RNA sequence: UUUAAACUCGUGAGUUUGCUUUGCAAACUCCUUAUUAUAUGCCGUUUCUCAUUGCAUUACGAAACGGCGGAAAUAAACACUCCUAGGAAUUUGAAAAUUCCUGCAGGUGUUUAUUUUAUA
Numbered sequence: 001u002u003u004a005a006a007c008u009c010g011u012g013a014g015u016u017u018g019c020u021u022u023g024c025a026a027a028c029u030c031c032u033u034a035u036u037a038u039a040u041g042c043c044g045u046u047u048c049u050c051a052u053u054g055c056a057u058u059a060c061g062a063a064a065c066g067g068c069g070g071a072a073a074u075a076a077a078c079a080c081u082c083c084u085a086g087g088a089a090u091u092u093g094a095a096a097a098u099u100c101c102u103g104c105a106g107g108u109g110u111u112u113a114u115u116u117u118a119u120a
Base pairs, nucleotide, nucleotide: 012030013029014028015027016026017025018024019023041068042067043066044065045064046063047062048061072115073114074113075112076111077110078109079108080107082106086101087100088099089098090097091096
A member of the RNA family "TD-1 RNA" from Treponema pedis, 120 nucleotides long.
The family's consensus secondary structure is taken from published work.
A search with the family's covariance model found it, with a score of 65 bits.
By type it is a cis-regulatory element.
Lineage of the source: Bacteria > Spirochaetota > Spirochaetia > Treponema > Treponema pedis.
For this family Rfam cites "Identification of 22 candidate structured RNAs in bacteria using the CMfinder comparative genomics pipeline" (Weinberg et al., Nucleic Acids Res, 2007).
Clan: TD (Treponema denticola) motifs.